MIR2593 microRNA precursor family: a 113-nucleotide RNA sequence from Trifolium subterraneum. Pairs were carried over by alignment from the consensus structure, which was predicted with RNAalifold. NCBI's taxonomy places the organism under Eukaryota, Streptophytina, Tracheophyta, Gunneridae, Trifolium.
RNA sequence: UUAUAAGCAAAUAUCACUUUUUAGAUACAUUGAAUAACUAAUGUAUCUAGUCUAAAAAGUGGACUAGAUACAUUAGUUAUUCAAUGUAUCUAAAAAGUGAUAUUUGCUUAUAA
Numbered sequence: 001u002u003a004u005a006a007g008c009a010a011a012u013a014u015c016a017c018u019u020u021u022u023a024g025a026u027a028c029a030u031u032g033a034a035u036a037a038c039u040a041a042u043g044u045a046u047c048u049a050g051u052c053u054a055a056a057a058a059g060u061g062g063a064c065u066a067g068a069u070a071c072a073u074u075a076g077u078u079a080u081u082c083a084a085u086g087u088a089u090c091u092a093a094a095a096a097g098u099g100a101u102a103u104u105u106g107c108u109u110a111u112a113a
Base pairs, nucleotide, nucleotide: 002112003111004110005109006108007107009105010104011103012102013101015099016098017097018096019095020094021093022092023091024090026088027087028086029085030084031083032082033081034080035079036078037077038076039075040074041073042072043071048066049065050064051063